Shown here is a 134-nucleotide sequence, a member of the family "Small nucleolar RNA SNORA48". The snoRNA ACA 48 has been identified to guide pseudouridylation of the residue U3797 in the 28S rRNA subunit. For this family Rfam cites "Mapping to nucleotide resolution of pseudouridine residues in large subunit ribosomal RNAs from representative eukaryotes, prokaryotes, archaebacteria, mitochondria and chloroplasts" (Ofengand and Bakin, J Mol Biol, 1997). The family is grouped with related families in Rfam's "SNORA48 clan". Rfam's curators put it in the seed alignment.
[Rfam]
RNA sequence: UGUCCUUGACUUGGGUAGAGUGAUGUCUGGUUGGUGCUGCCUAUCUCAUAUAAGCCAGGGACAAAUCAAUGCCUUAUUUAUUCCAGCUUGGCUUUUGGUCUGUGCCCAUACCUGGUUUAUGCCUUGGACACAUG
Numbered sequence: 001u002g003u004c005c006u007u008g009a010c011u012u013g014g015g016u017a018g019a020g021u022g023a024u025g026u027c028u029g030g031u032u033g034g035u036g037c038u039g040c041c042u043a044u045c046u047c048a049u050a051u052a053a054g055c056c057a058g059g060g061a062c063a064a065a066u067c068a069a070u071g072c073c074u075u076a077u078u079u080a081u082u083c084c085a086g087c088u089u090g091g092c093u094u095u096u097g098g099u100c101u102g103u104g105c106c107c108a109u110a111c112c113u114g115g116u117u118u119a120u121g122c123c124u125u126g127g128a129c130a131c132a133u134g
Base pairs, nucleotide, nucleotide: 001063002062003061004060005059006058007057008056011054012053014051018047019046020045022041024039025038027036075130077128078127079126080125090123091122092121096119097118098117100115101114102113104111